[Rfam]
RNA sequence: GCCCGGUUAGUUCAGUUGGUUAGAACGCCACAACUUAUUAAAUAUAAGUUUUCAAAGGUGAAUCGUGGAAACGCGGGUUCAAUUCCUGCACUGGGCU
Number, nucleotide and partner (000 for none) at each position: 001g096002c095003c094004c093005g092006g091007u090008u000009a000010g026011u025012u024013c023014a000015g000016u000017u000018g000019g000020u000021u000022a000023g013024a012025a011026c010027g000028c068029c067030a066031c065032a000033a000034c000035u000036u000037a000038u000039u000040a000041a000042a000043u000044a000045u000046a000047a000048g000049u000050u000051u000052u000053c000054a000055a000056a000057g000058g000059u000060g000061a000062a000063u000064c000065g031066u030067g029068g028069a000070a000071a000072c000073g089074c088075g087076g086077g085078u000079u000080c000081a000082a000083u000084u000085c077086c076087u075088g074089c073090a007091c006092u005093g004094g003095g002096c001097u000